[Rfam]
This 90-nucleotide sequence from Camellia sinensis belongs to the Rfam family "MIR2275 microRNA precursor family".
RNA sequence: GAACUGUAUGUGAGAAUUGGAGGCAAUUAAACCAAUUAGCACAAUUUUGCAAAGUGGAUUUAAUUUCCUCCAAUAUCUCAUCUCCGAUUU
Numbered sequence: 001g002a003a004c005u006g007u008a009u010g011u012g013a014g015a016a017u018u019g020g021a022g023g024c025a026a027u028u029a030a031a032c033c034a035a036u037u038a039g040c041a042c043a044a045u046u047u048u049g050c051a052a053a054g055u056g057g058a059u060u061u062a063a064u065u066u067c068c069u070c071c072a073a074u075a076u077c078u079c080a081u082c083u084c085c086g087a088u089u090u
Stems, first nucleotide, its partner, number of pairs: 005086002008083001011080004016074006023067001025065006033057001